The record is a 134-nucleotide sequence from Chinchilla lanigera, which matches "Small nucleolar RNA SNORA4" in Rfam. Rfam describes the family as follows. ACA4 is a member of the H/ACA class of snoRNA that guide the sites of modification of uridines to pseudouridines. Gene Ontology terms of the family: nucleolus and RNA processing. The organism belongs to Chinchilla, within Eukaryota. Rfam classes the family as an H/ACA-box small nucleolar RNA. A search with the family's covariance model found it, with a score of 122 bits.
RNA sequence: CCACCAAAAGUUAAUUUUGAGGGUAAGGUUUUUAAUAACCUUUACCAAUUUAGGCUGUUUGGGAGACUAAAAGACCACACUCCACAGUGAACUAUACCAUUUAGUAUAGUUCAUUACUAUUUUGUGGCUACAUC
Numbered sequence: 001c002c003a004c005c006a007a008a009a010g011u012u013a014a015u016u017u018u019g020a021g022g023g024u025a026a027g028g029u030u031u032u033u034a035a036u037a038a039c040c041u042u043u044a045c046c047a048a049u050u051u052a053g054g055c056u057g058u059u060u061g062g063g064a065g066a067c068u069a070a071a072a073g074a075c076c077a078c079a080c081u082c083c084a085c086a087g088u089g090a091a092c093u094a095u096a097c098c099a100u101u102u103a104g105u106a107u108a109g110u111u112c113a114u115u116a117c118u119a120u121u122u123u124g125u126g127g128c129u130a131c132a133u134c
Base pairs, nucleotide, nucleotide: 004062005061006060007059008058012057013056015054016053017052019050020049023046026043027040028039029038030037072129073128075127076126077125078124079123086115087114088113089112090111091110092109093108094107095106096105097104